The record is a 122-nucleotide RNA from Dendrobium nobile, which matches "mir-172 microRNA precursor family" in Rfam. A search with the family's covariance model found it, with a score of 77 bits. Rfam's curators write: mir-172 has been experimentally verified in Arabidopsis thaliana. This family is thought to target mRNAs coding for APETALA2-like transcription factors.

RNA sequence: GUGUUUGCAGGUGCUGCAUCAUCAAGAUUCACAAGAAUCACCGGAUUCCGGGCAGGCAGGCCGGCAGGUUGAAGCUCUUAUCCCUCUUGUGCGAAUCUUGAUGAUGCUGCAUCAGCAAUAAU
Numbered sequence: 001g002u003g004u005u006u007g008c009a010g011g012u013g014c015u016g017c018a019u020c021a022u023c024a025a026g027a028u029u030c031a032c033a034a035g036a037a038u039c040a041c042c043g044g045a046u047u048c049c050g051g052g053c054a055g056g057c058a059g060g061c062c063g064g065c066a067g068g069u070u071g072a073a074g075c076u077c078u079u080a081u082c083c084c085u086c087u088u089g090u091g092c093g094a095a096u097c098u099u100g101a102u103g104a105u106g107c108u109g110c111a112u113c114a115g116c117a118a119u120a121a122u
Stems, first nucleotide, its partner, number of pairs: 010113005016107015032091002
NCBI's taxonomy places the organism under Eukaryota, Euphyllophyta, Magnoliopsida, Orchidaceae, Dendrobium.